[Rfam]
RNA sequence: CGGUGAGGUAGAGGCGCAGAUUAGAUGAGUAUCCGGCAGGAGAAUGACAACGAAGAUUGCUGGAGAAAGGAUAGUUUGCCGAAGUAUAUAAAGAGGUCAUGCUUUAUAUUGCUGGCAUAUUACUGAAAAAGUAUUAUGCUGUCAUGUAAUGAUUUACAUGGAGAACUACUGAUCGA
Numbered sequence: 001c002g003g004u005g006a007g008g009u010a011g012a013g014g015c016g017c018a019g020a021u022u023a024g025a026u027g028a029g030u031a032u033c034c035g036g037c038a039g040g041a042g043a044a045u046g047a048c049a050a051c052g053a054a055g056a057u058u059g060c061u062g063g064a065g066a067a068a069g070g071a072u073a074g075u076u077u078g079c080c081g082a083a084g085u086a087u088a089u090a091a092a093g094a095g096g097u098c099a100u101g102c103u104u105u106a107u108a109u110u111g112c113u114g115g116c117a118u119a120u121u122a123c124u125g126a127a128a129a130a131g132u133a134u135u136a137u138g139c140u141g142u143c144a145u146g147u148a149a150u151g152a153u154u155u156a157c158a159u160g161g162a163g164a165a166c167u168a169c170u171g172a173u174c175g176a
Base pairs, nucleotide, nucleotide: 007170008169009168010167011166016079017078018077019076020075021074022073023072032064033063034062035061036060037059038058039057083113084112085111086109087108088107089106090105091104092103093102114140115139116138117137118136119135121133122132123131124130142161143160144159145158146157147156148155